[Rfam]
Shown here is an 81-nucleotide RNA from Pipistrellus kuhlii, a member of the family "mir-491 microRNA precursor family". A reference for the family is Bentwich et al. (2005), "Identification of hundreds of conserved and nonconserved human microRNAs", Nat Genet. The match comes from Rfam's covariance-model search (74 bits). The base pairs follow the family's consensus structure, which was predicted with RNAalifold.
RNA sequence: CUGACUCAGCUGGGUAGUGGGGAACUCAAUGAGGAGAAGAGCACUCCUUAUGCAAGAUUCCCUUCUGCCUGACUGGGUUGG
Numbered sequence: 001c002u003g004a005c006u007c008a009g010c011u012g013g014g015u016a017g018u019g020g021g022g023a024a025c026u027c028a029a030u031g032a033g034g035a036g037a038a039g040a041g042c043a044c045u046c047c048u049u050a051u052g053c054a055a056g057a058u059u060c061c062c063u064u065c066u067g068c069c070u071g072a073c074u075g076g077g078u079u080g081g
Base pairs, nucleotide, nucleotide: 003079004078005077006076007075008074009073011071012070013069014068016066017065019063020062021061022060023059024058027056029051030050031049032048033047034046035045036044